[Rfam]
RNA sequence: CCCUAGCCCUGAUAGUAGUGAAAAUCCUAGGGAGCCGGUGUUCGGCGAACUAGAUUGUAGCGGAUAGCAGGAAAUAGC
Numbered sequence: 001c002c003c004u005a006g007c008c009c010u011g012a013u014a015g016u017a018g019u020g021a022a023a024a025u026c027c028u029a030g031g032g033a034g035c036c037g038g039u040g041u042u043c044g045g046c047g048a049a050c051u052a053g054a055u056u057g058u059a060g061c062g063g064a065u066a067g068c069a070g071g072a073a074a075u076a077g078c
Base pairs, nucleotide, nucleotide: 009070010069011068013066014065018061019060023056024055025054026053029051030050034046035045036044037043
Record summary
This 78-nucleotide RNA from Flavobacterium sp. PL002 belongs to the Rfam family "Flavo-1 RNA". It scores 60 bits against the family's covariance model. The family's RNA type in Rfam is small RNA.